[Rfam]
The family of this 123-nucleotide sequence from Endobacter medicaginis is "Glycine riboswitch aptamer". The source organism's lineage runs through Bacteria, Pseudomonadota, Alphaproteobacteria, Acetobacterales and Endobacter.

RNA sequence: CCCACGACCUCUGGAAAGACCCCCCGGCCCGCCGGUGCGGGUCACCGACGGAGAAAGGAGCCUUUCCCCUUGCCAGGGGUUUACGGCUCCGAAUCUCUCAGGUUCCGUGACAGAGGGGGCCGU
Numbered sequence: 001c002c003c004a005c006g007a008c009c010u011c012u013g014g015a016a017a018g019a020c021c022c023c024c025c026g027g028c029c030c031g032c033c034g035g036u037g038c039g040g041g042u043c044a045c046c047g048a049c050g051g052a053g054a055a056a057g058g059a060g061c062c063u064u065u066c067c068c069c070u071u072g073c074c075a076g077g078g079g080u081u082u083a084c085g086g087c088u089c090c091g092a093a094u095c096u097c098u099c100a101g102g103u104u105c106c107g108u109g110a111c112a113g114a115g116g117g118g119g120c121c122g123u
Base pairs, nucleotide, nucleotide: 008116009115010114011113012112013111021041022040023039044103045102046101047099048098051097052096053095057090058089059088060087061086062085